[Rfam]
RNA sequence: AUAUUUACCUGGCAGGGGAAAUACUAUUAUCAGUGGCUUAAAAAAAAAAGUUUUUCUAGGGUGAGAGCCUUUUAUUAUGGUUUGUUUUUCUAAUACAAUAUUUAAAAUUAAAAAAAAAAAAGUUUUUCUAGGAUGACACUUGUCUUUUGUGCUCUGGUUAUGCUGACUCCUAUGGUUUCCCCGAAUGUGGGAAACUCAACUGCAUAAUUUGUGGUAGUGGGGGACUGCAUUUGUGCUUCCCUUU
Numbered sequence: 001a002u003a004u005u006u007a008c009c010u011g012g013c014a015g016g017g018g019a020a021a022u023a024c025u026a027u028u029a030u031c032a033g034u035g036g037c038u039u040a041a042a043a044a045a046a047a048a049a050g051u052u053u054u055u056c057u058a059g060g061g062u063g064a065g066a067g068c069c070u071u072u073u074a075u076u077a078u079g080g081u082u083u084g085u086u087u088u089u090c091u092a093a094u095a096c097a098a099u100a101u102u103u104a105a106a107a108u109u110a111a112a113a114a115a116a117a118a119a120a121a122g123u124u125u126u127u128c129u130a131g132g133a134u135g136a137c138a139c140u141u142g143u144c145u146u147u148u149g150u151g152c153u154c155u156g157g158u159u160a161u162g163c164u165g166a167c168u169c170c171u172a173u174g175g176u177u178u179c180c181c182c183g184a185a186u187g188u189g190g191g192a193a194a195c196u197c198a199a200c201u202g203c204a205u206a207a208u209u210u211g212u213g214g215u216a217g218u219g220g221g222g223g224a225c226u227g228c229a230u231u232u233g234u235g236c237u238u239c240c241c242u243u244u
Base pairs, nucleotide, nucleotide: 012203013202014201015200016129017128018127019126020125021124023123024122025121027119130171131170132169133168135167139162141160142159144157145156173198174197175196176194177193178192180190181189219243220242221241222240223239227236228235229234